The family of this 131-nucleotide RNA from Cicer arietinum is "Small nucleolar RNA snoR74". The family's RNA type in Rfam is H/ACA-box small nucleolar RNA. A reference for the family is Marker et al. (2002), "Experimental RNomics: identification of 140 candidates for small non-messenger RNAs in the plant Arabidopsis thaliana", Curr Biol. Lineage of the source: Eukaryota > Streptophytina > Embryophyta > Hologalegina > Cicer. Rfam links the family to the GO terms RNA processing and nucleolus. The match comes from Rfam's covariance-model search (99 bits).
[Rfam]
RNA sequence: CAAAAAGCAGUGGUCUGUUGUUGCCUUGUGAGCAGUCCACUCGUAACCUUCAGGGAUAUAAAACCAUUGUUAUUGGGUGAACCGCUGUUCCAUAUUUUGUGAUCGUAGGUUCAGUAAAUGAUGGAACAUUU
Numbered sequence: 001c002a003a004a005a006a007g008c009a010g011u012g013g014u015c016u017g018u019u020g021u022u023g024c025c026u027u028g029u030g031a032g033c034a035g036u037c038c039a040c041u042c043g044u045a046a047c048c049u050u051c052a053g054g055g056a057u058a059u060a061a062a063a064c065c066a067u068u069g070u071u072a073u074u075g076g077g078u079g080a081a082c083c084g085c086u087g088u089u090c091c092a093u094a095u096u097u098u099g100u101g102a103u104c105g106u107a108g109g110u111u112c113a114g115u116a117a118a119u120g121a122u123g124g125a126a127c128a129u130u131u
Stems, first nucleotide, its partner, number of pairs: 005050003011039002015035005064124008078113006